[Rfam]
RNA sequence: UGUUAAAAAUUUCAUCUAUUUAUAUUAUUAAAACUUAAUCGUUGUAUAUCAAAAUGAGGUGCACGUGACAGUCAUAUAUAAUUGUCUGGUUAUUUUGUUAACAACAUUUAUUUUUAACAGUAAAAUUGGAUGAAAUUUUUAAUA
Numbered sequence: 001u002g003u004u005a006a007a008a009a010u011u012u013c014a015u016c017u018a019u020u021u022a023u024a025u026u027a028u029u030a031a032a033a034c035u036u037a038a039u040c041g042u043u044g045u046a047u048a049u050c051a052a053a054a055u056g057a058g059g060u061g062c063a064c065g066u067g068a069c070a071g072u073c074a075u076a077u078a079u080a081a082u083u084g085u086c087u088g089g090u091u092a093u094u095u096u097g098u099u100a101a102c103a104a105c106a107u108u109u110a111u112u113u114u115u116a117a118c119a120g121u122a123a124a125a126u127u128g129g130a131u132g133a134a135a136u137u138u139u140u141a142a143u144a
Stems, first nucleotide, its partner, number of pairs: 002143015018127001020125002023122004028117006
RNA: MIR7502 microRNA precursor family